[Rfam]
RNA sequence: AGCUCAUGCCCUCUUUGGGCGUUUCCUCCCAGACUUCAGACCGCGGCGGCAACGCCGCGGCUUUUUUUUGCCCGC
Numbered sequence: 001a002g003c004u005c006a007u008g009c010c011c012u013c014u015u016u017g018g019g020c021g022u023u024u025c026c027u028c029c030c031a032g033a034c035u036u037c038a039g040a041c042c043g044c045g046g047c048g049g050c051a052a053c054g055c056c057g058c059g060g061c062u063u064u065u066u067u068u069u070g071c072c073c074g075c
Stems, first nucleotide, its partner, number of pairs: 008020004041060008

The record is a 75-nucleotide RNA sequence from Segnochrobactrum spirostomi, which matches "Makes More Granules Regulator RNA (mmgR)" in Rfam.
Rfam classes the family as a small RNA.